[Rfam]
Nucleotides: 189
Stems, first nucleotide, its partner, number of pairs: 007027003012022003048067003052063002069085007114144001116142006124135002127132001147182002151178002154175001157172001
Number, partner (000 for none) and nucleotide at each position: 001000g002000u003000c004000u005000a006000a007027u008026c009025u010000c011000u012022g013021a014020u015000c016000u017000u018000u019000u020014a021013u022012c023000u024000a025009a026008g027007g028000u029000c030000a031000a032000g033000u034000u035000u036000a037000a038000c039000a040000u041000u042000u043000g044000u045000u046000c047000a048067u049066a050065a051000c052063a053062g054000u055000u056000a057000a058000c059000u060000a061000u062053c063052u064000u065050u066049u067048a068000c069085a070084u071083c072082u073081u074080u075079g076000a077000c078000u079075u080074g081073a082072a083071g084070a085069u086000g087000u088000c089000a090000u091000g092000u093000u094000a095000a096000a097000c098000a099000g100000a101000c102000u103000u104000u105000u106000g107000g108000g109000g110000c111000c112000a113000g114144a115000a116142g117141a118140u119139g120138g121137g122000u123000u124135g125134g126000a127132a128000c129000u130000u131000u132127u133000c134125c135124u136000g137121u138120c139119u140118g141117u142116c143000c144114u145000a146000u147182g148181c149000a150000u151178c152177u153000g154175c155000c156000u157172g158000u159000u160000a161000a162000a163000g164000c165000a166000g167000u168000g169000u170000c171000u172157c173000u174000a175154g176000a177152a178151g179000c180000a181148g182147c183000a184000c185000a186000c187000c188000a189000a
The record is a 189-nucleotide sequence from Formicarius rufipectus, which matches "U2 spliceosomal RNA" in Rfam. NCBI's taxonomy places the organism under Eukaryota, Sarcopterygii, Amniota, Neoaves, Formicarius. Gene Ontology terms of the family: pre-mRNA branch point binding, U2 snRNP and mRNA branch site recognition.